A member of the RNA family "Small nucleolar RNA SNORA57" from Fregata magnificens, 134 nucleotides long. Rfam links the family to the GO terms nucleolus and RNA processing. About the family: U99 belongs to the H/ACA class of snoRNAs which are thought to guide the sites of modification of uridines to pseudouridines, the target for this family is unknown. The family's RNA type in Rfam is H/ACA-box small nucleolar RNA. The base pairs follow the family's consensus structure, which was predicted with PFOLD. The family has 26 seed sequences and 1,736 matches in Rfam 15.1. NCBI's taxonomy places the organism under Eukaryota, Tetrapoda, Archelosauria, Dinosauria, Fregata.
RNA sequence: CCUCCCGUUCUUGGCGGGCCCCGGCGGCACCGUGCCCGGGUCCGUGAUGUACGGAGGUAGAGCAGCCGCCGGCGCGAAGUCUUCGGUGCCUGCGGCCUCCUCCGCCGGUCCUACCCUCACGUGCCGGGAUAAGG
Numbered sequence: 001c002c003u004c005c006c007g008u009u010c011u012u013g014g015c016g017g018g019c020c021c022c023g024g025c026g027g028c029a030c031c032g033u034g035c036c037c038g039g040g041u042c043c044g045u046g047a048u049g050u051a052c053g054g055a056g057g058u059a060g061a062g063c064a065g066c067c068g069c070c071g072g073c074g075c076g077a078a079g080u081c082u083u084c085g086g087u088g089c090c091u092g093c094g095g096c097c098u099c100c101u102c103c104g105c106c107g108g109u110c111c112u113a114c115c116c117u118c119a120c121g122u123g124c125c126g127g128g129a130u131a132a133g134g
Base pairs, nucleotide, nucleotide: 001057002056003055004054005053015044016043017042018041019040020039023036024035025034070126071125072124073123074122075121089108090107092105093104094103095102
Dot-bracket structure: (((((.........((((((..(((........)))..))))))........)))))............((((((.............((.((((......)))).))............))))))........